[Rfam]
The family of this 79-nucleotide RNA sequence from Flexivirga endophytica is "6C RNA". Rfam classes the family as a cis-regulatory element. Lineage of the source: Bacteria > Bacillati > Actinomycetes > Dermacoccaceae > Flexivirga. On this family, see Weinberg et al., Nucleic Acids Res 2007: "Identification of 22 candidate structured RNAs in bacteria using the CMfinder comparative genomics pipeline".
RNA sequence: CGCAACGGGCUCCUACCCCCCCAGGGGCCCGGUUGCAACUGAAGACCCCCGCCUACCCCCCCGGCGGGGGUCUUCAUAU
Numbered sequence: 001c002g003c004a005a006c007g008g009g010c011u012c013c014u015a016c017c018c019c020c021c022c023a024g025g026g027g028c029c030c031g032g033u034u035g036c037a038a039c040u041g042a043a044g045a046c047c048c049c050c051g052c053c054u055a056c057c058c059c060c061c062c063g064g065c066g067g068g069g070g071u072c073u074u075c076a077u078a079u
Stems, first nucleotide, its partner, number of pairs: 002036002004033001006031008041075013